[Rfam]
RNA sequence: GACCAUAUUUAAUUCACCUCUCUAUGGUCGCGGCUG
Number, nucleotide and partner (000 for none) at each position: 001g029002a028003c027004c026005a025006u024007a023008u000009u000010u000011a000012a000013u000014u000015c000016a000017c000018c000019u000020c000021u000022c000023u007024a006025u005026g004027g003028u002029c001030g000031c000032g000033g000034c000035u000036g000

S4-Bacteroidia ribosomal protein leader: a 36-nucleotide RNA.
The base pairs follow the family's consensus structure, which is taken from published work.
The literature on the family includes a 2020 paper in BMC Microbiol by Eckert and Weinberg, "Discovery of 20 novel ribosomal leader candidates in bacteria and archaea".
Rfam classes the family as a cis-regulatory leader.